Rfam assigns this 164-nucleotide RNA from Clostridium sp. SY8519 to the family "Clostridiales-1 RNA". Pairs were carried over by alignment from the consensus structure, which is taken from published work. The family's RNA type in Rfam is small RNA.
RNA sequence: UAAUUACAGCACCUGUAUACUUUGUCCAGCUCAUGCUUGCAUGAAGCUGGACAAAGUAUACAAGGUGCGCCCCACCAUGAGGAAGAAGCGGGGAAGGGGCCCCGCGGAAUCCGAAUGGUGGGAGGGAUGCGGGAGUGCGGAGCACGGAGCAUCCCGUGUAAUUA
Numbered sequence: 001u002a003a004u005u006a007c008a009g010c011a012c013c014u015g016u017a018u019a020c021u022u023u024g025u026c027c028a029g030c031u032c033a034u035g036c037u038u039g040c041a042u043g044a045a046g047c048u049g050g051a052c053a054a055a056g057u058a059u060a061c062a063a064g065g066u067g068c069g070c071c072c073c074a075c076c077a078u079g080a081g082g083a084a085g086a087a088g089c090g091g092g093g094a095a096g097g098g099g100c101c102c103c104g105c106g107g108a109a110u111c112c113g114a115a116u117g118g119u120g121g122g123a124g125g126g127a128u129g130c131g132g133g134a135g136u137g138c139g140g141a142g143c144a145c146g147g148a149g150c151a152u153c154c155c156g157u158g159u160a161a162u163u164a
Stems, first nucleotide, its partner, number of pairs: 001164007010067004015061016031044005071122008081112003088105006124155007135145004